The record is a 114-nucleotide RNA from Medicago truncatula, which matches "MIR2593 microRNA precursor family" in Rfam.
The organism belongs to Medicago, within Eukaryota.
Nucleotides: 114
Stems, first nucleotide, its partner, number of pairs: 002113006009106005015100004020095006027088018049066004
Number, partner (000 for none) and nucleotide at each position: 001000u002113u003112a004111u005110a006109a007108g008000c009106a010105a011104a012103a013102a014000u015100c016099c017098a018097u019000u020095u021094u022093u023092u024091a025090g026000a027088u028087u029086c030085a031084u032083u033082c034081a035080u036079u037078a038077a039076a040075u041074g042073u043072u044071g045000u046000a047000u048000g049066u050065g051064g052063u053000c054000u055000a056000u057000a058000u059000u060000u061000a062000g063052g064051u065050u066049a067000c068000a069000u070000a071044c072043a073042a074041c075040a076039u077038u078037u079036a080035a081034u082033g083032a084031a085030u086029g087028a088027a089000a090025c091024u092023a093022a094021a095020a096000u097018a098017u099016g100015g101000u102013u103012u104011u105010u106009u107000g108007c109006u110005u111004a112003u113002a114000a